The family of this 134-nucleotide sequence from Planococcus massiliensis is "FMN riboswitch aptamer (RFN element)". The organism belongs to Planococcus, within Bacteria.
RNA sequence: AUUCAUCUUCGGGGCAGGGUGCAAUUCCCUACCGGCGGUAAUUGGACUGCAGUCCUUAAGCCCGCGAGCCGUAAAAAGCAGGAUUUGGUGAGAUUCCAAAGCCGACAGUAUAGUCUGGAUGGGAGAAGGUGAAG
Numbered sequence: 001a002u003u004c005a006u007c008u009u010c011g012g013g014g015c016a017g018g019g020u021g022c023a024a025u026u027c028c029c030u031a032c033c034g035g036c037g038g039u040a041a042u043u044g045g046a047c048u049g050c051a052g053u054c055c056u057u058a059a060g061c062c063c064g065c066g067a068g069c070c071g072u073a074a075a076a077a078g079c080a081g082g083a084u085u086u087g088g089u090g091a092g093a094u095u096c097c098a099a100a101g102c103c104g105a106c107a108g109u110a111u112a113g114u115c116u117g118g119a120u121g122g123g124a125g126a127a128g129g130u131g132a133a134g
Base pairs, nucleotide, nucleotide: 003132004131005130006129007128008127009126010125017029018028019027031114032113033104034103035065036064037063038062060102061101070078084100085099086098087097088096106117107116108115

Its family is annotated with FMN binding in the Gene Ontology. The RFN element is a highly conserved domain that is found frequently in the 5'-untranslated regions of prokaryotic mRNAs that encode for flavin mononucleotide (FMN) biosynthesis and transport proteins.